[Rfam]
RNA sequence: GGGUGUCCGCGCUGCUCCAGCGCGGGCAGGUUCUCGCGCUGGUCGGGCCGCCAGCG
Numbered sequence: 001g002g003g004u005g006u007c008c009g010c011g012c013u014g015c016u017c018c019a020g021c022g023c024g025g026g027c028a029g030g031u032u033c034u035c036g037c038g039c040u041g042g043u044c045g046g047g048c049c050g051c052c053a054g055c056g
Base pairs, nucleotide, nucleotide: 005027006026007025008024009023010022011021012020037056038055039054040053041052042051043050

Notes: Rfam assigns this 56-nucleotide RNA from Sphingomonas sp. BK345 to the family "nhaA-I RNA". It is annotated as a riboswitch. The family's consensus secondary structure is taken from published work. Rfam's curators write: Acidobacteria, Alphaproteobacteria, Betaproteobacteria and Gammaproteobacteria, Verrucomicrobia, cand. division NC10.